[Rfam]
RNA sequence: GUUGAUCACGUGUAUUCUUGGGUAAUUAACACAUUUUAAUGGUUGUUAUUGCUUGAGAAUACACGUAGUUGAC
Number, nucleotide and partner (000 for none) at each position: 001g073002u072003u071004g070005a069006u000007c000008a066009c065010g064011u000012g062013u061014a060015u059016u058017c057018u056019u055020g054021g053022g052023u051024a000025a050026u000027u048028a047029a046030c045031a044032c042033a000034u000035u000036u000037u000038a000039a000040u000041g000042g032043u000044u031045g030046u029047u028048a027049u000050u025051g023052c022053u021054u020055g019056a018057g017058a016059a015060u014061a013062c012063a000064c010065g009066u008067a000068g000069u005070u004071g003072a002073c001
mir-137 microRNA precursor family: a 73-nucleotide RNA sequence from Sitophilus oryzae.
Its Rfam clan is "mir-137 clan".
Rfam 15.1 lists 1,138 matches to the family in 797 species.
A search with the family's covariance model found it, with a score of 78 bits.